[Rfam]
RNA sequence: UCCGGGAUGUGGCAUAAGUACAGAGAAGCCAUUACUUCAGA
Numbered sequence: 001u002c003c004g005g006g007a008u009g010u011g012g013c014a015u016a017a018g019u020a021c022a023g024a025g026a027a028g029c030c031a032u033u034a035c036u037u038c039a040g041a
Stems, first nucleotide, its partner, number of pairs: 001041002004038003008034001009032005
About this RNA
The record is a 41-nucleotide RNA sequence from Castor canadensis, which matches "MAT2A 3'UTR stem loop D" in Rfam. The family's consensus secondary structure is taken from published work. The match comes from Rfam's covariance-model search (49 bits).